[Rfam]
RNA sequence: GGCGAUAAACGACGGCGUAUAAUAGACGCAGCGGACCCGGGGGCAGUACCCGGCGGCUCCACCAUAUGCCCCUGAUAACACAGGGGUUUCUGACGGGGCCGAACCAGGAUCGACGUGUGUUGAAAGGCGCUGACUUUUGCUCGGAAUGGGACCACCGUGACGGCCCGUACACAAGUGCCAACGAUAACGAAGCACUCGCUAUGGCGGCCUAA
Number, nucleotide and partner (000 for none) at each position: 001g141002g140003c139004g138005a137006u000007a000008a000009a000010c000011g000012a000013c000014g000015g130016c129017g128018u127019a000020u000021a000022a000023u000024a000025g000026a000027c119028g118029c117030a000031g116032c115033g114034g000035a000036c000037c053038c052039g051040g050041g049042g000043g000044c000045a000046g000047u000048a000049c041050c040051c039052g038053g037054c101055g100056g099057c098058u097059c096060c095061a000062c000063c000064a000065u000066a000067u000068g000069c000070c000071c000072c000073u000074g000075a000076u000077a000078a000079c000080a000081c000082a000083g000084g000085g000086g000087u000088u000089u000090c000091u000092g000093a000094c000095g060096g059097g058098g057099c056100c055101g054102a000103a000104c000105c000106a000107g000108g000109a000110u000111c000112g000113a000114c033115g032116u031117g029118u028119g027120u000121u000122g000123a000124a000125a000126g000127g018128c017129g016130c015131u000132g000133a000134c000135u000136u000137u005138u004139g003140c002141u001142c157143g156144g155145a000146a000147u000148g000149g000150g000151a000152c000153c000154a000155c144156c143157g142158u000159g000160a000161c000162g000163g000164c000165c000166c000167g000168u000169a000170c000171a000172c000173a000174a000175g000176u000177g000178c000179c000180a000181a000182c000183g000184a000185u000186a000187a000188c000189g000190a000191a000192g000193c000194a000195c000196u000197c000198g000199c000200u000201a000202u000203g000204g000205c000206g000207g000208c000209c000210u000211a000212a000
The family of this 212-nucleotide sequence from Sphingomonas panacisoli is "permuted transfer-messenger RNA". The match comes from Rfam's covariance-model search (130 bits). Bacterial tmRNA, also known as 10Sa RNA or SsrA, is named for its dual tRNA and mRNA-like properties. Its role is to liberate the mRNA from a stalled ribosome. To accomplish this part of the tmRNA is used as a reading frame that ends in a translation stop signal. It is annotated as a non-coding RNA gene.